The record is a 344-nucleotide RNA sequence from Sarcina ventriculi, which matches "Bacterial RNase P class A" in Rfam. Pairs were carried over by alignment from the consensus structure, which is taken from published work. Rfam classes the family as a ribozyme. The organism belongs to Sarcina, within Bacteria. Its family is annotated with tRNA processing, ribonuclease P activity and dimeric ribonuclease P complex in the Gene Ontology. The match comes from Rfam's covariance-model search (317 bits).
[Rfam]
RNA sequence: CGAGUAAGCCAGAUAAUCGCUGCUAACUUAAGUUAGGAGAGGAAAGUCCGAGCUCCAUAGGGCAGGGUGCUGGAUAACGUCCAGUGAAGGCGACUUUAAGGAUAGUGCAACAGAGAUAUACCGCCUAAAUUUUUUAGGUAAGGGUGGAAAGGUGAGGUAAGAGCUCACCAGCAUAUAGGUGACUAUAUGGCUAUGUAAACCCCACCUGGAGCAAGGCUAAAUAGAAGGACAUAUAGGGAUUGCCCGUCCCGUCCUCGGGUAUGCCGCUUGAGCCUAAUGGUAACGUUAGGCCUAGAUAGAUGAUUAUCAAAUACAGAACUCGGCUUAUAGACUUGUCUCGUAUA
Numbered sequence: 001c002g003a004g005u006a007a008g009c010c011a012g013a014u015a016a017u018c019g020c021u022g023c024u025a026a027c028u029u030a031a032g033u034u035a036g037g038a039g040a041g042g043a044a045a046g047u048c049c050g051a052g053c054u055c056c057a058u059a060g061g062g063c064a065g066g067g068u069g070c071u072g073g074a075u076a077a078c079g080u081c082c083a084g085u086g087a088a089g090g091c092g093a094c095u096u097u098a099a100g101g102a103u104a105g106u107g108c109a110a111c112a113g114a115g116a117u118a119u120a121c122c123g124c125c126u127a128a129a130u131u132u133u134u135u136a137g138g139u140a141a142g143g144g145u146g147g148a149a150a151g152g153u154g155a156g157g158u159a160a161g162a163g164c165u166c167a168c169c170a171g172c173a174u175a176u177a178g179g180u181g182a183c184u185a186u187a188u189g190g191c192u193a194u195g196u197a198a199a200c201c202c203c204a205c206c207u208g209g210a211g212c213a214a215g216g217c218u219a220a221a222u223a224g225a226a227g228g229a230c231a232u233a234u235a236g237g238g239a240u241u242g243c244c245c246g247u248c249c250c251g252u253c254c255u256c257g258g259g260u261a262u263g264c265c266g267c268u269u270g271a272g273c274c275u276a277a278u279g280g281u282a283a284c285g286u287u288a289g290g291c292c293u294a295g296a297u298a299g300a301u302g303a304u305u306a307u308c309a310a311a312u313a314c315a316g317a318a319c320u321c322g323g324c325u326u327a328u329a330g331a332c333u334u335g336u337c338u339c340g341u342a343u344a
Base pairs, nucleotide, nucleotide: 001340002339003338004337005335006334007333008332010330011328012308013307014306015305016304017303018302020039021038023036024035025034026033027032044326045325046324048323049322050321051320052319053211054210055209056208060245061244062243063242065207066206067205068204069203070084071083072082073081074080085099086097087096088095089094100202101201105200106199107196108195109194121143122142123139124138125137126136127135128134129133151169152168153167154166155165156164171191172189173188174187175186176185177184178183215265216264217263226255227254228253229252230251236250237249238248239247240246272291273290274289275288276287277286278285279284